[Rfam]
RNA sequence: AGAGGCCCUCUGUAGCCUGGGUGGGAUGCUUGCCUUGUCGCCAUGGCUACAAGGCAAGCAUUCCACCAGGCCGCUCAUGCUGCCUGC
Numbered sequence: 001a002g003a004g005g006c007c008c009u010c011u012g013u014a015g016c017c018u019g020g021g022u023g024g025g026a027u028g029c030u031u032g033c034c035u036u037g038u039c040g041c042c043a044u045g046g047c048u049a050c051a052a053g054g055c056a057a058g059c060a061u062u063c064c065a066c067c068a069g070g071c072c073g074c075u076c077a078u079g080c081u082g083c084c085u086g087c
Stems, first nucleotide, its partner, number of pairs: 004084003012074002015071003020067014037050002040047002

Description
A member of the RNA family "mir-9195 microRNA precursor family" from Myotis myotis, 87 nucleotides long. The family's consensus secondary structure was predicted with RNAalifold. Rfam 15.1 lists 438 matches to the family in 7 species.